Record summary: The family of this 103-nucleotide RNA sequence from Kocuria soli is "TPP riboswitch aptamer (THI element)".
RNA sequence: AACGAACGACAGGGGAGCGCGCGAGCGCUGAGAGUGCGGGAGACCGCAGACCCUCGAACCUGAUCCGGUUAGUACCGGCGAAGGGAGUCGAGUAUCUCGAGGU
Numbered sequence: 001a002a003c004g005a006a007c008g009a010c011a012g013g014g015g016a017g018c019g020c021g022c023g024a025g026c027g028c029u030g031a032g033a034g035u036g037c038g039g040g041a042g043a044c045c046g047c048a049g050a051c052c053c054u055c056g057a058a059c060c061u062g063a064u065c066c067g068g069u070u071a072g073u074a075c076c077g078g079c080g081a082a083g084g085g086a087g088u089c090g091a092g093u094a095u096c097u098c099g100a101g102g103u
Base pairs, nucleotide, nucleotide: 007090008089009088010087011054012053013052014051017028018027019026020025035048036047037046038045039044059084060083061082065078066077067076068075

Its family is annotated with thiamine pyrophosphate binding in the Gene Ontology.